[Rfam]
RNA: Bacterial large subunit ribosomal RNA, nucleotides 1299 to 1621
Organism: uncultured Verrucomicrobiota bacterium
RNA sequence: GAUAGCCCUGUUGAAUCCAGGGCCGCCGAAUACCCCAAGGUCUCCUUGGCAAGGAUUGUCCGCCAAGGUCUAGUCGGAUCCUAAGUUGAACCCAUACGGCUACAACGAUGGAAACCAGGCUAAUAUUCCUGGACCGCCGAUAUUUAACCCAUCCUUGGUGCGCAGGUGCAAGCAGGCCGUCGAAUGCCUGUCCCGAGAGGGCGAGUUCCAGCUCUGCUGGAGCGAAGUUGUCAUGACGCGCACCGCAAGAAAAAGAUGGCGUAUAAUCAGGUGUCCGUACCAAACCGACACAGGUGGGGUCGCGCAAGAGCGCGAAGGCGUAA
Numbered sequence: 001g002a003u004a005g006c007c008c009u010g011u012u013g014a015a016u017c018c019a020g021g022g023c024c025g026c027c028g029a030a031u032a033c034c035c036c037a038a039g040g041u042c043u044c045c046u047u048g049g050c051a052a053g054g055a056u057u058g059u060c061c062g063c064c065a066a067g068g069u070c071u072a073g074u075c076g077g078a079u080c081c082u083a084a085g086u087u088g089a090a091c092c093c094a095u096a097c098g099g100c101u102a103c104a105a106c107g108a109u110g111g112a113a114a115c116c117a118g119g120c121u122a123a124u125a126u127u128c129c130u131g132g133a134c135c136g137c138c139g140a141u142a143u144u145u146a147a148c149c150c151a152u153c154c155u156u157g158g159u160g161c162g163c164a165g166g167u168g169c170a171a172g173c174a175g176g177c178c179g180u181c182g183a184a185u186g187c188c189u190g191u192c193c194c195g196a197g198a199g200g201g202c203g204a205g206u207u208c209c210a211g212c213u214c215u216g217c218u219g220g221a222g223c224g225a226a227g228u229u230g231u232c233a234u235g236a237c238g239c240g241c242a243c244c245g246c247a248a249g250a251a252a253a254a255g256a257u258g259g260c261g262u263a264u265a266a267u268c269a270g271g272u273g274u275c276c277g278u279a280c281c282a283a284a285c286c287g288a289c290a291c292a293g294g295u296g297g298g299g300u301c302g303c304g305c306a307a308g309a310g311c312g313c314g315a316a317g318g319c320g321u322a323a
Stems, first nucleotide, its partner, number of pairs: 005023006024320004033299004039281002044068006053061002075277004080111002085106003092099002115132005135273004139268003147262002149259005156245004162239002167233002169230003172191006192220002196215004203208001285294002301314004
Dot-bracket structure: ....((((((.......))))))((((.....((((..((...((((((...((.....)).))))))......((((.((...(((....((....))....)))...))...(((((........)))))..(((((((.....(((((((..((((..((...(((((((((((........))))))((..((((...(....)...))))...)).......))).))....))..)))).........))))).))...))).))))))))..))...((......)).)))).((((......))))..))))...